[Rfam]
The family of this 54-nucleotide sequence from Tetragenococcus muriaticus is "Cyanobacteria heterocyst sRNA".
RNA sequence: GAGCUUUAGAUAUAAAGGAUUUAUAAAAAGACUUGAUAGCUUAUCAAGUCUUUU
Numbered sequence: 001g002a003g004c005u006u007u008a009g010a011u012a013u014a015a016a017g018g019a020u021u022u023a024u025a026a027a028a029a030g031a032c033u034u035g036a037u038a039g040c041u042u043a044u045c046a047a048g049u050c051u052u053u054u
Stems, first nucleotide, its partner, number of pairs: 005016003028052010
It scores 36 bits against the family's covariance model. The source organism's lineage runs through Bacteria, Bacillati, Lactobacillales, Tetragenococcus and Tetragenococcus muriaticus.